[Rfam]
mir-8364 microRNA precursor family: a 61-nucleotide RNA from Pristionchus pacificus.
RNA sequence: UCUUCAUUUCGCAUACUCUCUCGCCUCUCUGACCGGUGAGAAAGCACGUGAAAUGAAGAGA
Numbered sequence: 001u002c003u004u005c006a007u008u009u010c011g012c013a014u015a016c017u018c019u020c021u022c023g024c025c026u027c028u029c030u031g032a033c034c035g036g037u038g039a040g041a042a043a044g045c046a047c048g049u050g051a052a053a054u055g056a057a058g059a060g061a
Stems, first nucleotide, its partner, number of pairs: 001059007010050001012048001014046001016044002019041004
It scores 72 bits against the family's covariance model.
Lineage of the source: Eukaryota > Bilateria > Rhabditina > Diplogasteromorpha > Pristionchus.
Pairs were carried over by alignment from the consensus structure, which was predicted with RNAalifold.